The family of this 114-nucleotide sequence from Elysia chlorotica is "Potassium channel RNA editing signal". By type it is a cis-regulatory element. Lineage of the source: Eukaryota > Sacoglossa > Placobranchoidea > Plakobranchidae > Elysia. It scores 76 bits against the family's covariance model. The family's consensus secondary structure is taken from published work.
[Rfam]
RNA sequence: GUGGGUUAUGGUGAUAUUUAUCCUCAGACAGUUUUGGGCAAAGUGGUAGGCAGCGUCUGCUGCGUGUGCGGCGUGUUGGUCAUCGCUUUGCCCAUUCCUAUUAUCGUCAACAAC
Numbered sequence: 001g002u003g004g005g006u007u008a009u010g011g012u013g014a015u016a017u018u019u020a021u022c023c024u025c026a027g028a029c030a031g032u033u034u035u036g037g038g039c040a041a042a043g044u045g046g047u048a049g050g051c052a053g054c055g056u057c058u059g060c061u062g063c064g065u066g067u068g069c070g071g072c073g074u075g076u077u078g079g080u081c082a083u084c085g086c087u088u089u090g091c092c093c094a095u096u097c098c099u100a101u102u103a104u105c106g107u108c109a110a111c112a113a114c
Base pairs, nucleotide, nucleotide: 001114002113004111008107009106010105011104013102014101015100016099020095021094037077038076039075040074049063